This 441-nucleotide part of an RNA from Granulicatella sp. zg-ZJ belongs to the Rfam family "Bacterial large subunit ribosomal RNA". Lineage of the source: Bacteria > Bacillati > Lactobacillales > Carnobacteriaceae > Granulicatella.
RNA sequence: CUCUCCGAAAUAGCUUUAGGGCUAGCCUCGUUGUGAGAAUCCUGGAGGUAGAGCACUGUUUGGACUAGGGGCCCAUCUCGGGUUACCGAAUUCAGAUAAACUCCGAAUGCCAGAGAUUUAUAAACGGGAGUCAGACUGCGAGUGAUAAGAUCCGUAGUCGAAAGGGAAACAGCCCAGACCACCAGCUAAGGUCCCAAAGUGUCUGUUAAGUGGAAAAGGAUGUGGGAUUGCUUAAACAACUAGGAUGUUGGCUUAGAAGCAGCCACCAUUUAAAGAGUGCGUAAUAGCUCACUAGUCGAGUGAUCCUGCGCCGAAAAUGUACCGGGGCUAAACAGACCACCGAAGCUGUGGAUUGACGUGAAGAGCGUCAGUGGUAGGAGAGCGUUCUAAGGGCGAAGAAGCCAUACCGUAAGGAGUGGUGGAGCGUUUAGAAGUGAGAAU
Numbered sequence: 001c002u003c004u005c006c007g008a009a010a011u012a013g014c015u016u017u018a019g020g021g022c023u024a025g026c027c028u029c030g031u032u033g034u035g036a037g038a039a040u041c042c043u044g045g046a047g048g049u050a051g052a053g054c055a056c057u058g059u060u061u062g063g064a065c066u067a068g069g070g071g072c073c074c075a076u077c078u079c080g081g082g083u084u085a086c087c088g089a090a091u092u093c094a095g096a097u098a099a100a101c102u103c104c105g106a107a108u109g110c111c112a113g114a115g116a117u118u119u120a121u122a123a124a125c126g127g128g129a130g131u132c133a134g135a136c137u138g139c140g141a142g143u144g145a146u147a148a149g150a151u152c153c154g155u156a157g158u159c160g161a162a163a164g165g166g167a168a169a170c171a172g173c174c175c176a177g178a179c180c181a182c183c184a185g186c187u188a189a190g191g192u193c194c195c196a197a198a199g200u201g202u203c204u205g206u207u208a209a210g211u212g213g214a215a216a217a218g219g220a221u222g223u224g225g226g227a228u229u230g231c232u233u234a235a236a237c238a239a240c241u242a243g244g245a246u247g248u249u250g251g252c253u254u255a256g257a258a259g260c261a262g263c264c265a266c267c268a269u270u271u272a273a274a275g276a277g278u279g280c281g282u283a284a285u286a287g288c289u290c291a292c293u294a295g296u297c298g299a300g301u302g303a304u305c306c307u308g309c310g311c312c313g314a315a316a317a318u319g320u321a322c323c324g325g326g327g328c329u330a331a332a333c334a335g336a337c338c339a340c341c342g343a344a345g346c347u348g349u350g351g352a353u354u355g356a357c358g359u360g361a362a363g364a365g366c367g368u369c370a371g372u373g374g375u376a377g378g379a380g381a382g383c384g385u386u387c388u389a390a391g392g393g394c395g396a397a398g399a400a401g402c403c404a405u406a407c408c409g410u411a412a413g414g415a416g417u418g419g420u421g422g423a424g425c426g427u428u429u430a431g432a433a434g435u436g437a438g439a440a441u
Base pairs, nucleotide, nucleotide: 001382002381003380004379005378006377011024012023013022014021015020026130027128028127029126030125031124032123036121037118038117040115042113043112044111045110051104052102053101057098058097059096061094062093063092064091068087069086070084071083072082073081074080134159135158136157137156138155139154140153142151143150164175165174166173179351180350181349182348184347185346186345190341191340192339199338201337202336203335204334205333206332218312219311222309223308224307225306226305227304228303229302230301231300239296240295241294242293243292245269246268247267250264251263252262270274275290279288280287352372353371354370355369356368357367358366359365383436385433386432387431388430389429390428391427393425394424401420402419403418404417405416407414408413
It scores 2889 bits against the family's covariance model. Rfam links the family to the GO terms structural constituent of ribosome and ribosome. The base pairs follow the family's consensus structure, which is taken from published work.